Rfam assigns this 65-nucleotide sequence from Neotoma lepida to the family "mir-344 microRNA precursor family".
RNA sequence: UUACUAGCCAGGCUCCUGGCUAAAGUCCAGCUCUUAGCUGGAAUUAGCCAAAGCCUGGUUGUAAA
Numbered sequence: 001u002u003a004c005u006a007g008c009c010a011g012g013c014u015c016c017u018g019g020c021u022a023a024a025g026u027c028c029a030g031c032u033c034u035u036a037g038c039u040g041g042a043a044u045u046a047g048c049c050a051a052a053g054c055c056u057g058g059u060u061g062u063a064a065a
Stems, first nucleotide, its partner, number of pairs: 007059003011055004017050007027041005